[Rfam]
RNA sequence: CCAUUAUCGGGAGCAGUGUCUUCCAUAAUGA
Dot-bracket structure: .((((((.((((((...).))))))))))).
RNA: Iron response element II
Organism: Tetraodon nigroviridis